[Rfam]
The family of this 121-nucleotide RNA sequence from Vibrio genomosp. F6 is "TPP riboswitch aptamer (THI element)". The source organism's lineage runs through Bacteria, Pseudomonadota, Vibrionales, Vibrionaceae and Vibrio genomosp. F6.
RNA sequence: ACUUACUCAUCGGGGGGCCAGUCAUUCAUUUUGUGGAUGAUCAGCUGAGAUCAAGCAUCUGCUUGGGACCCGUAAACCUGAACCGGAUAAUGCCGGCGUAGGAAUUGAGUUUGGAGCAACC
Numbered sequence: 001a002c003u004u005a006c007u008c009a010u011c012g013g014g015g016g017g018c019c020a021g022u023c024a025u026u027c028a029u030u031u032u033g034u035g036g037a038u039g040a041u042c043a044g045c046u047g048a049g050a051u052c053a054a055g056c057a058u059c060u061g062c063u064u065g066g067g068a069c070c071c072g073u074a075a076a077c078c079u080g081a082a083c084c085g086g087a088u089a090a091u092g093c094c095g096g097c098g099u100a101g102g103a104a105u106u107g108a109g110u111u112u113g114g115a116g117c118a119a120c121c
Stems, first nucleotide, its partner, number of pairs: 006109004011072004017045002021041008052065005077102004083096004